t44 RNA: a 92-nucleotide RNA from Succinivibrio dextrinosolvens. Taxonomically the source falls in Succinivibrio dextrinosolvens (Bacteria, Pseudomonadati, Pseudomonadota, Succinivibrionaceae). Pairs were carried over by alignment from the consensus structure, which was predicted with LocARNA.
RNA sequence: UUAUUUUUUUUUAGAAAACGCACACUGUUUGUCAACGUCCAUGACUGGGUGCCAUUACUAUGGUUAGUCAGGCGGAACAGUGGAGGCUUAAC
Numbered sequence: 001u002u003a004u005u006u007u008u009u010u011u012u013a014g015a016a017a018a019c020g021c022a023c024a025c026u027g028u029u030u031g032u033c034a035a036c037g038u039c040c041a042u043g044a045c046u047g048g049g050u051g052c053c054a055u056u057a058c059u060a061u062g063g064u065u066a067g068u069c070a071g072g073c074g075g076a077a078c079a080g081u082g083g084a085g086g087c088u089u090a091a092c
Base pairs, nucleotide, nucleotide: 023082024081025080026079027078028077029076030075036074037073038072039071042070043069044068045067046066051064052063053062054061055060
Rfam classes the family as a small RNA.